[Rfam]
RNA: Bacterial RNase P class A
RNA sequence: GAAGUGGAUCAGACAAUCGCGGGACGUAGAUAUUAUCUAUGGUAUCUACGUCAUGAGGAAAGUCUGGGCUCCAAAGGGUAGAAAGCUGGCUAACAGCCAGGCGGGGCAACCCGACGGAAAGCGCCGCAGAAAAGAAAACUCCCACUGCUCGUCUUGGCGAGUAAGAGAAAAGCUGAAACGGUGGUGUAAAAGACCACCAGCGUCUAGGCAACUGGACGGCUUGGCAAGCCCCUUUCGGAGCAAGCGCAUAUAGGAGCGCUCAAGUGUGACCCGCACUGCGCUCGGGUAGCGUGCUAGAGGAUGUCAGUAAUGGCAUUCGUAGAUAAAUGAUUGUCCACGACAGAACCCGGCUUAUCGAUCCACUUCGCAU
Numbered sequence: 001g002a003a004g005u006g007g008a009u010c011a012g013a014c015a016a017u018c019g020c021g022g023g024a025c026g027u028a029g030a031u032a033u034u035a036u037c038u039a040u041g042g043u044a045u046c047u048a049c050g051u052c053a054u055g056a057g058g059a060a061a062g063u064c065u066g067g068g069c070u071c072c073a074a075a076g077g078g079u080a081g082a083a084a085g086c087u088g089g090c091u092a093a094c095a096g097c098c099a100g101g102c103g104g105g106g107c108a109a110c111c112c113g114a115c116g117g118a119a120a121g122c123g124c125c126g127c128a129g130a131a132a133a134g135a136a137a138a139c140u141c142c143c144a145c146u147g148c149u150c151g152u153c154u155u156g157g158c159g160a161g162u163a164a165g166a167g168a169a170a171a172g173c174u175g176a177a178a179c180g181g182u183g184g185u186g187u188a189a190a191a192g193a194c195c196a197c198c199a200g201c202g203u204c205u206a207g208g209c210a211a212c213u214g215g216a217c218g219g220c221u222u223g224g225c226a227a228g229c230c231c232c233u234u235u236c237g238g239a240g241c242a243a244g245c246g247c248a249u250a251u252a253g254g255a256g257c258g259c260u261c262a263a264g265u266g267u268g269a270c271c272c273g274c275a276c277u278g279c280g281c282u283c284g285g286g287u288a289g290c291g292u293g294c295u296a297g298a299g300g301a302u303g304u305c306a307g308u309a310a311u312g313g314c315a316u317u318c319g320u321a322g323a324u325a326a327a328u329g330a331u332u333g334u335c336c337a338c339g340a341c342a343g344a345a346c347c348c349g350g351c352u353u354a355u356c357g358a359u360c361c362a363c364u365u366c367g368c369a370u
Stems, first nucleotide, its partner, number of pairs: 001366010011355001012335007020055002023052012060353003064350005069240004076272004081236005086100005101115001102113004116231002121229002123225003139172002142167001146163007180198006200220001201218007244292004254283006263277005299318008